[Rfam]
This 97-nucleotide RNA sequence from Dioscorea zingiberensis belongs to the Rfam family "Plastid-rps12 3UTR RNA". From the family's description: Plastid rpl20 is a non-coding RNA (ncRNA) recognised in plastids. It was found in the three prime untranslated region (3UTR) of rps12 gene, its 3UTR location sugest a role in transcript maduration. For this family Rfam cites "Retrograde signaling in plants: A critical review focusing on the GUN pathway and beyond" (Richter et al., Plant Commun, 2023). Rfam 15.1 lists 1,710 matches to the family in 1,426 species. It is annotated as a cis-regulatory element. Lineage of the source: Eukaryota > Streptophyta > Streptophytina > Embryophyta > Dioscorea. Pairs were carried over by alignment from the consensus structure, which was predicted with LocARNA.
RNA sequence: GGUUUCCAUUGGUGCAAAUCCAAUCAAUUCGAUUUGAGAUGAGAAGCACUUCUCCAUUGGUAGCAAAUGAUUAUCCAUUAAGCGGAGGAAAUGCUAU
Numbered sequence: 001g002g003u004u005u006c007c008a009u010u011g012g013u014g015c016a017a018a019u020c021c022a023a024u025c026a027a028u029u030c031g032a033u034u035u036g037a038g039a040u041g042a043g044a045a046g047c048a049c050u051u052c053u054c055c056a057u058u059g060g061u062a063g064c065a066a067a068u069g070a071u072u073a074u075c076c077a078u079u080a081a082g083c084g085g086a087g088g089a090a091a092u093g094c095u096a097u
Stems, first nucleotide, its partner, number of pairs: 009023004052087004056078002059075005